[Rfam]
RNA sequence: UGACCGGGAGGCCUCUGGUGGGACAGAGGCCAGGCAUGGAUCAGACCUCCCUCUCUCGGAUGAGAGCGGUGCCGGGGCCCGACGGCAUGCGCG
Numbered sequence: 001u002g003a004c005c006g007g008g009a010g011g012c013c014u015c016u017g018g019u020g021g022g023a024c025a026g027a028g029g030c031c032a033g034g035c036a037u038g039g040a041u042c043a044g045a046c047c048u049c050c051c052u053c054u055c056u057c058g059g060a061u062g063a064g065a066g067c068g069g070u071g072c073c074g075g076g077g078c079c080c081g082a083c084g085g086c087a088u089g090c091g092c093g
Stems, first nucleotide, its partner, number of pairs: 001043003005039001010031008066092003070087005
Rfam assigns this 93-nucleotide RNA sequence from Roseovarius faecimaris to the family "Rhodo-rpoB RNA". The base pairs follow the family's consensus structure, which is taken from published work. It is annotated as a cis-regulatory element.